[Rfam]
RNA sequence: GUGACAGAAGAGAGAGAGCACACAUGGUUGUUUUUCUAGCAUGCAUAUUGCAGCUUGAAGCUCUGUGUGCUCUCUCUCUCUCCGUCAC
Numbered sequence: 001g002u003g004a005c006a007g008a009a010g011a012g013a014g015a016g017a018g019c020a021c022a023c024a025u026g027g028u029u030g031u032u033u034u035u036c037u038a039g040c041a042u043g044c045a046u047a048u049u050g051c052a053g054c055u056u057g058a059a060g061c062u063c064u065g066u067g068u069g070c071u072c073u074c075u076c077u078c079u080c081u082c083c084g085u086c087a088c
Base pairs, nucleotide, nucleotide: 001088002087003086004085005084007082008081010078011077012076013075014074015073016072017071018070019069020068021067023065024064
This 88-nucleotide sequence from Momordica charantia belongs to the Rfam family "mir-156 microRNA precursor family". This family represents the plant microRNA (miRNA) precursor mir-156. Rfam links the family to the GO terms RISC complex and miRNA-mediated post-transcriptional gene silencing. On this family, see Ambros, Cell 2001: "microRNAs: tiny regulators with great potential".